Shown here is a 79-nucleotide RNA sequence from Candidatus Moduliflexus flocculans, a member of the family "c-di-GMP-I-GGC riboswitch aptamer". For this family Rfam cites "Structural and biochemical characterization of linear dinucleotide analogues bound to the c-di-GMP-I aptamer" (Smith et al., Biochemistry, 2012).
RNA sequence: AGUGAAAAAGCUAAACCCGUCGUGAGGCGGGGACGGAAAGCCGCGGGUCUUCAUCGUGAAGACAGCCGGGUUGCCACCA
Numbered sequence: 001a002g003u004g005a006a007a008a009a010g011c012u013a014a015a016c017c018c019g020u021c022g023u024g025a026g027g028c029g030g031g032g033a034c035g036g037a038a039a040g041c042c043g044c045g046g047g048u049c050u051u052c053a054u055c056g057u058g059a060a061g062a063c064a065g066c067c068g069g070g071u072u073g074c075c076a077c078c079a
Stems, first nucleotide, its partner, number of pairs: 003076002011036002016031006034065001039072004044068003047063003